[Rfam]
Nucleotides: 169
Stems, first nucleotide, its partner, number of pairs: 026040003042082010059072005088168001
Number, partner (000 for none) and nucleotide at each position: 001000c002000g003000c004000g005000c006000c007000g008000u009000c010000a011000u012000u013000g014000g015000g016000g017000a018000g019000u020000a021000g022000c023000c024000g025000c026040c027039c028038u029000g030000c031000g032000c033000c034000a035000c036000g037000c038028a039027g040026g041000g042082g043081c044080u045079c046078g047077c048076g049075u050074c051073a052000a053000c054000a055000c056000a057000c058000u059072u060071g061070g062069c063068c064000g065000u066000c067000c068063g069062g070061c071060c072059a073051u074050g075049g076048c077047g078046c079045g080044a081043g082042c083000a084000g085000c086000u087000c088168c089000g090000c091000a092000g093000c094000c095000u096000g097000g098000c099000a100000a101000g102000a103000c104000c105000u106000u107000u108000g109000a110000c111000c112000g113000c114000u115000a116000c117000g118000c119000c120000u121000c122000c123000g124000g125000a126000a127000g128000g129000g130000c131000c132000g133000g134000g135000g136000a137000u138000g139000c140000g141000u142000g143000c144000g145000g146000u147000c148000u149000u150000u151000g152000g153000u154000g155000u156000g157000u158000c159000c160000g161000g162000c163000c164000c165000g166000g167000a168088g169000a